[Rfam]
The family of this 47-nucleotide RNA from Synechocystis sp. PCC 6803 is "Hsp17 thermometer". Rfam classes the family as an RNA thermoregulator.

RNA sequence: AUUCAAGGGUAAUCAAUUCCUUCCACACAUCAGGAGUUAACAUUAUG
Numbered sequence: 001a002u003u004c005a006a007g008g009g010u011a012a013u014c015a016a017u018u019c020c021u022u023c024c025a026c027a028c029a030u031c032a033g034g035a036g037u038u039a040a041c042a043u044u045a046u047g
Base pairs, nucleotide, nucleotide: 009046010045011044012043013042015038016037017036018035019034020033021032